The record is a 494-nucleotide part of an RNA from Alexandrium catenella, which matches "Eukaryotic large subunit ribosomal RNA" in Rfam. NCBI's taxonomy places the organism under Eukaryota, Alveolata, Dinophyceae, Gonyaulacales, Alexandrium. On this family, see Yusupov et al., Science 2001: "Crystal structure of the ribosome at 5.5 A resolution".
RNA sequence: UGGAACAAAGUAGGUAAGGGAAGUCGGCAAACUAGAUCCGUAACUUUGGGAAAAGGAUUGGCUCUGAGGGUUGGGUGCAGGGGUCCUUGUGCUGAUGUUUGAGCUUAGCAAUAGCUACUUGACGCCUCUGGUGGAUAGUGGCUGUUUGCAUUGCAAAAACUGCUGGACAAGGAAUGCCUUCUUGGGCUGUCUGUGCACAAUGAACAACUAACUCAGAACUGAAGCGGACAAGGGGAAUCCGACUGUUUAAUUAAAACAAAGCAUUGUGAUGGCUUGAAAAGGUGUUGAUGCAAUGUGAUUUCUGCCCAGUGCUCUGAAUGUCAAAGUGAUGAAAUUCAAACAAGCGCGGGUAAACGGCGGGAGUAACUAUGACUCUCUUAAGGUAGCCAAAUGCCUCGUCAUCUAAUUAGUGACGCGCAUGAAUGGAUUAACGAGAUUCCCACUGUCCCUAUCUACUAUCUAGCGAAACCACAGCCAAGGGAACGGGCUUGGGA
Numbered sequence: 001u002g003g004a005a006c007a008a009a010g011u012a013g014g015u016a017a018g019g020g021a022a023g024u025c026g027g028c029a030a031a032c033u034a035g036a037u038c039c040g041u042a043a044c045u046u047u048g049g050g051a052a053a054a055g056g057a058u059u060g061g062c063u064c065u066g067a068g069g070g071u072u073g074g075g076u077g078c079a080g081g082g083g084u085c086c087u088u089g090u091g092c093u094g095a096u097g098u099u100u101g102a103g104c105u106u107a108g109c110a111a112u113a114g115c116u117a118c119u120u121g122a123c124g125c126c127u128c129u130g131g132u133g134g135a136u137a138g139u140g141g142c143u144g145u146u147u148g149c150a151u152u153g154c155a156a157a158a159a160c161u162g163c164u165g166g167a168c169a170a171g172g173a174a175u176g177c178c179u180u181c182u183u184g185g186g187c188u189g190u191c192u193g194u195g196c197a198c199a200a201u202g203a204a205c206a207a208c209u210a211a212c213u214c215a216g217a218a219c220u221g222a223a224g225c226g227g228a229c230a231a232g233g234g235g236a237a238u239c240c241g242a243c244u245g246u247u248u249a250a251u252u253a254a255a256a257c258a259a260a261g262c263a264u265u266g267u268g269a270u271g272g273c274u275u276g277a278a279a280a281g282g283u284g285u286u287g288a289u290g291c292a293a294u295g296u297g298a299u300u301u302c303u304g305c306c307c308a309g310u311g312c313u314c315u316g317a318a319u320g321u322c323a324a325a326g327u328g329a330u331g332a333a334a335u336u337c338a339a340a341c342a343a344g345c346g347c348g349g350g351u352a353a354a355c356g357g358c359g360g361g362a363g364u365a366a367c368u369a370u371g372a373c374u375c376u377c378u379u380a381a382g383g384u385a386g387c388c389a390a391a392u393g394c395c396u397c398g399u400c401a402u403c404u405a406a407u408u409a410g411u412g413a414c415g416c417g418c419a420u421g422a423a424u425g426g427a428u429u430a431a432c433g434a435g436a437u438u439c440c441c442a443c444u445g446u447c448c449c450u451a452u453c454u455a456c457u458a459u460c461u462a463g464c465g466a467a468a469c470c471a472c473a474g475c476c477a478a479g480g481g482a483a484c485g486g487g488c489u490u491g492g493g494a
Base pairs, nucleotide, nucleotide: 001462002461003460004459009457010456011455012454013453014452015451016450018448019447020446035059036058037057038056039055044049060220061219063217064216065215066214067213068212069209070208071207072206073205075198076197077196078195079194081192082191083190084173085172086171088169089168090167097160098159099158100157103154104153108149109148110147111145112144113143114142115141116140117139118138119137123133124132125131126130221225233441234440235439236438237437238436239435240433241432244258245257246256261296262295263294264293265292266291267290268289272283273282274281275280300427301426302425304358305357306356309355310354311351312350313349314348316347319346320345321344327338328337329336359377360376361375362374363373364372378382398414399413400412401411402410475492476491477490478489479488